Shown here is a 55-nucleotide sequence, a member of the family "Transposase-1 RNA". It is one of the family's seed sequences.

RNA sequence: UAAGAGCUAGUCAAUGUGACUACUCCCAAGUGGAAUAUCAGAAUACUAGUGAAGA
Number, nucleotide and partner (000 for none) at each position: 001u000002a000003a000004g000005a000006g050007c049008u048009a047010g046011u045012c000013a000014a000015u000016g000017u040018g039019a038020c000021u000022a000023c000024u034025c033026c032027c000028a000029a000030g000031u000032g026033g025034a024035a000036u000037a000038u019039c018040a017041g000042a000043a000044u000045a011046c010047u009048a008049g007050u006051g000052a000053a000054g000055a000